The family of this 86-nucleotide RNA from Bathycoccus prasinos is "Selenocysteine transfer RNA". The family's consensus secondary structure is taken from published work. Taxonomically the source falls in Bathycoccus (Eukaryota, Viridiplantae, Mamiellophyceae, Bathycoccaceae).

RNA sequence: GCCGGAGUGACCUUCGAUGGCUCGGAGCGCAGGCUUCAAACCUGUGGGGGCUUGACGGCCCAGUUGUUCGAUUCAACCUCACCGGC
Numbered sequence: 001g002c003c004g005g006a007g008u009g010a011c012c013u014u015c016g017a018u019g020g021c022u023c024g025g026a027g028c029g030c031a032g033g034c035u036u037c038a039a040a041c042c043u044g045u046g047g048g049g050g051c052u053u054g055a056c057g058g059c060c061c062a063g064u065u066g067u068u069c070g071a072u073u074c075a076a077c078c079u080c081a082c083c084g085g086c
Stems, first nucleotide, its partner, number of pairs: 001086005007080001009078001012027006028046006048061005063077004